[Rfam]
RNA: msiK RNA
RNA sequence: CAUUACCAUCCAUUCACUACGGAUCGUCCGGCACGUACCUGCCGGUGAAGGAGUCUAAU
Numbered sequence: 001c002a003u004u005a006c007c008a009u010c011c012a013u014u015c016a017c018u019a020c021g022g023a024u025c026g027u028c029c030g031g032c033a034c035g036u037a038c039c040u041g042c043c044g045g046u047g048a049a050g051g052a053g054u055c056u057a058a059u
Stems, first nucleotide, its partner, number of pairs: 010051002013049004028045006